[Rfam]
RNA sequence: ACGGCUAUUUUCAAAUAUGAUUACCUCGGUGAAGAGUGAUUUUUCAGUCAUGCCGAGAUGCAAUGGUGACGAGAUAGGCUUGUUCGAGAUAUUGGAUAAGCCGAUUCUUUCUAGUGGGAGUGAUUCCAUUGGUGAAGACGGAAACCAUCAACAAUGCCUUGCAGUGUAUCAUCAUAGAGAAGUCAAAUGCAGAAUCCUUGUGGUCAGUGAUUAAUAGACGUCUGCGGUGCAGAAAUAAUCCAGUGAUGUGAGUGGUGUGAGAGACUACGGACUAACUGGAAAUUCUCAAUAAGCUGAUUUGCCUUGAAUCCGAGAAAUCGGAGUAUAACACAAGAGGUUCGUUAAAGUAGCGGUAUGGCAAGUUCUUAAAUAAGCAAUUUCGAUAUGAGCAAUGCAAAGGGUGCAAAAUAGGCGAAAACAUUAUCUGAAAGAACCGUGAAAUUUAUGGGUAUCAAUCCCAUGUGUGCUUUGACAGUGGUAGGAAGCCAAGAGUCGCUCUCAGAAGCUCAGACCUAUCAUCACAGUGGCAGAAUAUGACUUUUACCAUGAUUGAAUAAGGUGAAGACCUAAUUGUGUUUGAAAAAAUGU
Numbered sequence: 001a002c003g004g005c006u007a008u009u010u011u012c013a014a015a016u017a018u019g020a021u022u023a024c025c026u027c028g029g030u031g032a033a034g035a036g037u038g039a040u041u042u043u044u045c046a047g048u049c050a051u052g053c054c055g056a057g058a059u060g061c062a063a064u065g066g067u068g069a070c071g072a073g074a075u076a077g078g079c080u081u082g083u084u085c086g087a088g089a090u091a092u093u094g095g096a097u098a099a100g101c102c103g104a105u106u107c108u109u110u111c112u113a114g115u116g117g118g119a120g121u122g123a124u125u126c127c128a129u130u131g132g133u134g135a136a137g138a139c140g141g142a143a144a145c146c147a148u149c150a151a152c153a154a155u156g157c158c159u160u161g162c163a164g165u166g167u168a169u170c171a172u173c174a175u176a177g178a179g180a181a182g183u184c185a186a187a188u189g190c191a192g193a194a195u196c197c198u199u200g201u202g203g204u205c206a207g208u209g210a211u212u213a214a215u216a217g218a219c220g221u222c223u224g225c226g227g228u229g230c231a232g233a234a235a236u237a238a239u240c241c242a243g244u245g246a247u248g249u250g251a252g253u254g255g256u257g258u259g260a261g262a263g264a265c266u267a268c269g270g271a272c273u274a275a276c277u278g279g280a281a282a283u284u285c286u287c288a289a290u291a292a293g294c295u296g297a298u299u300u301g302c303c304u305u306g307a308a309u310c311c312g313a314g315a316a317a318u319c320g321g322a323g324u325a326u327a328a329c330a331c332a333a334g335a336g337g338u339u340c341g342u343u344a345a346a347g348u349a350g351c352g353g354u355a356u357g358g359c360a361a362g363u364u365c366u367u368a369a370a371u372a373a374g375c376a377a378u379u380u381c382g383a384u385a386u387g388a389g390c391a392a393u394g395c396a397a398a399g400g401g402u403g404c405a406a407a408a409u410a411g412g413c414g415a416a417a418a419c420a421u422u423a424u425c426u427g428a429a430a431g432a433a434c435c436g437u438g439a440a441a442u443u444u445a446u447g448g449g450u451a452u453c454a455a456u457c458c459c460a461u462g463u464g465u466g467c468u469u470u471g472a473c474a475g476u477g478g479u480a481g482g483a484a485g486c487c488a489a490g491a492g493u494c495g496c497u498c499u500c501a502g503a504a505g506c507u508c509a510g511a512c513c514u515a516u517c518a519u520c521a522c523a524g525u526g527g528c529a530g531a532a533u534a535u536g537a538c539u540u541u542u543a544c545c546a547u548g549a550u551u552g553a554a555u556a557a558g559g560u561g562a563a564g565a566c567c568u569a570a571u572u573g574u575g576u577u578u579g580a581a582a583a584a585a586u587g588u
Base pairs, nucleotide, nucleotide: 008584009583010582011581014578015577020572022570025057026056027055028054029053036051037050038049039048040047059163060162061161062160063159072108073107074106075104077102079100080099081098082097083096084095085094086093087092109134111132112131113130114129115128116127117126118125119124137149138148140146141145169569177542182539192340193339194338195337197334198333199332200331201330202329203298204297205296206295207294208293221233222232223231224230239280240279241278242277243276244275248272249271252268253267254266258288259287260286261285299361300360301359302358303357309322310321311320312319313318344442350437351436352435353434354433424511425510426509427508448459449458463523464522465521475520478517481514482513485507490500491499492498557568558567559566560565
Background:
A member of the RNA family "ROOL RNA", 588 nucleotides long. The base pairs follow the family's consensus structure, which is taken from published work. About the family: Firmicutes, Fusobacteria (1 example), Tenericutes (1 example).